[Rfam]
RNA sequence: UGAAUGAAGAGUUUGAUCCUGGCUCAGGAUGAACGCUGACAGAAUGCUUAACACAUGCAAGUCUUUGGCGAAUCUGUGCUUGCACAGGCUAGCCAAGGCGGACGGGUGAGUAACGCGUAAAGAACUUGCCCUGCAGACAGGGAUAACAGACGGAAACGACUGACAACACCUGAUACAGUUGCCGGCACGCAUGUGCCUGGCAAUGAAAAGAGAUGCUGCGGGAGAGCUUUGCGUCCUAUUAGCUUGUUGGCGGGGUAACGGCCCACCAAGGCGAUGAUAGGUAGCCGGCCUGAGAGGGUGAACGGCCACAAGGGGACUGAGAUACGGCCCUUACUCCUACGGGAGGCAGCAGUGGGGAAUAUUGGACAAUGGGGGCAACCCUGAUCCAGCAAUUCUGUGUGCACGAUGAAGGUUUUCGGAUUGUAAAGUGCUUUCAGCAGGGAAGAAGGAAGUGACGGUACCUGCAGAAGAAGCGACGGCUAAAUACGUGCCAGCAGCCGCGGUAAUACGUAUGUCGCAAGCGUUAUCCGGAAUUAUUG
Number, nucleotide and partner (000 for none) at each position: 001u000002g000003a000004a000005u000006g000007a000008a000009g025010a024011g023012u022013u021014u000015g000016a000017u000018c000019c000020u000021g013022g012023c011024u010025c009026a000027g529028g528029a527030u526031g000032a525033a524034c523035g522036c521037u520038g000039a398040c397041a396042g395043a394044a393045u391046g390047c356048u000049u000050a000051a000052c354053a353054c352055a000056u351057g350058c349059a000060a000061g099062u098063c097064u000065u000066u096067g000068g094069c092070g000071a000072a000073u088074c087075u086076g085077u084078g083079c000080u000081u000082g000083c078084a077085c076086a075087g074088g073089c000090u000091a000092g069093c000094c068095a000096a066097g063098g062099c061100g000101g000102a000103c000104g000105g000106g309107u308108g307109a000110g000111u000112a000113a000114c000115g234116c233117g232118u231119a230120a229121a228122g227123a000124a000125c226126u225127u000128g000129c000130c222131c221132u220133g219134c218135a217136g216137a000138c172139a171140g170141g169142g000143a000144u000145a000146a000147c162148a161149g160150a000151c158152g157153g000154a000155a000156a000157c152158g151159a000160c149161u148162g147163a000164c000165a000166a000167c000168a000169c141170c140171u139172g138173a000174u000175a000176c000177a000178g204179u203180u202181g201182c200183c199184g198185g000186c195187a194188c193189g000190c000191a000192u000193g188194u187195g186196c000197c000198u184199g183200g182201c181202a180203a179204u178205g000206a000207a000208a000209a214210g000211a000212g000213a000214u209215g000216c136217u135218g134219c133220g132221g131222g130223a000224g000225a126226g125227c122228u121229u120230u119231g118232c117233g116234u115235c281236c280237u279238a000239u000240u000241a000242g272243c271244u270245u000246g000247u269248u268249g267250g266251c000252g264253g263254g262255g000256u000257a000258a000259c000260g000261g000262c254263c253264c252265a000266c250267c249268a248269a247270g244271g243272c242273g000274a000275u000276g000277a000278u000279a237280g236281g235282u000283a000284g306285c305286c304287g303288g299289c298290c297291u296292g000293a000294g000295a000296g291297g290298g289299u288300g000301a000302a000303c287304g286305g285306c284307c108308a107309c106310a000311a332312g331313g330314g329315g328316a000317c000318u000319g000320a000321g000322a000323u000324a000325c000326g000327g000328c315329c314330c313331u312332u311333a000334c345335u344336c343337c342338u000339a000340c000341g000342g337343g336344a335345g334346g000347c000348a000349g058350c057351a056352g054353u053354g052355g000356g047357g000358a000359a000360u000361a000362u388363u000364g387365g386366a385367c000368a000369a000370u383371g382372g381373g380374g379375g000376c000377a000378a000379c374380c373381c372382u371383g370384a000385u366386c365387c364388a362389g000390c046391a045392a000393u044394u043395c042396u041397g040398u039399g000400u000401g431402c430403a429404c428405g000406a000407u000408g000409a000410a000411g422412g421413u420414u419415u000416u000417c000418g000419g414420a413421u412422u411423g000424u000425a000426a000427a000428g404429u403430g402431c401432u000433u000434u000435c470436a000437g465438c464439a463440g462441g461442g000443a000444a000445g456446a000447a000448g000449g000450a000451a000452g000453u000454g000455a000456c445457g000458g000459u000460a000461c441462c440463u439464g438465c437466a000467g000468a000469a000470g435471a000472a000473g518474c517475g516476a515477c514478g000479g000480c000481u000482a000483a000484a513485u512486a511487c510488g509489u000490g000491c000492c000493a000494g501495c500496a000497g000498c000499c000500g495501c494502g000503g000504u000505a000506a000507u000508a000509c488510g487511u486512a485513u484514g477515u476516c475517g474518c473519a000520a037521g036522c035523g034524u033525u032526a030527u029528c028529c027530g000531g000532a000533a000534u000535u000536a000537u000538u000539g000
Bacterial small subunit ribosomal RNA: a 539-nucleotide part of an RNA from Leptotrichia hofstadii. The organism belongs to Leptotrichia hofstadii, within Bacteria. The literature on the family includes a 2001 paper in Science by Yusupov et al., "Crystal structure of the ribosome at 5.5 A resolution".